[Rfam]
RNA sequence: AGCUGUCCCGGCGGCCUCCUGUCGCCCCUCAGCUGUUCCCCUCUGGAGGUUUGGUAAACCUUCAUCCUCACGGGCCCGAAGAAAUUCGAGGCCCUUUUUU
Numbered sequence: 001a002g003c004u005g006u007c008c009c010g011g012c013g014g015c016c017u018c019c020u021g022u023c024g025c026c027c028c029u030c031a032g033c034u035g036u037u038c039c040c041c042u043c044u045g046g047a048g049g050u051u052u053g054g055u056a057a058a059c060c061u062u063c064a065u066c067c068u069c070a071c072g073g074g075c076c077c078g079a080a081g082a083a084a085u086u087c088g089a090g091g092c093c094c095u096u097u098u099u100u
Stems, first nucleotide, its partner, number of pairs: 001034005011028001013026002044064007072094005077088004

Rfam assigns this 100-nucleotide sequence from Rhizobium sp. Root149 to the family "Alphaproteobacterial ar15". The base pairs follow the family's consensus structure. The source organism's lineage runs through Bacteria, Pseudomonadati, Hyphomicrobiales, Rhizobiaceae and Rhizobium. The family has 61 seed sequences and 316 matches in Rfam 15.1. For this family Rfam cites "A survey of sRNA families in alpha-proteobacteria" (del Val et al., RNA Biol, 2012). By type it is a small RNA. Its Rfam clan is "suhB sRNA clan".